Source information
Shown here is a 76-nucleotide RNA sequence from Danio rerio, a member of the family "mir-27 microRNA precursor family". For this family Rfam cites "The developmental miRNA profiles of zebrafish as determined by small RNA cloning" (Chen et al., Genes Dev, 2005). The sequence is in the family's curated seed alignment. Its family is annotated with miRNA-mediated post-transcriptional gene silencing and RISC complex in the Gene Ontology. The family's consensus secondary structure was predicted with RNAalifold.
RNA sequence: AGCAGGUGCAGAGCUUAGCUGAUUGGUGAACAGUGAUUGAACUCUUUGUUCACAGUGGCUAAGUUCUGCAUCUGAG
Dot-bracket structure: ..........((((((((((.....(((((((..............)))))))...))))))))))..........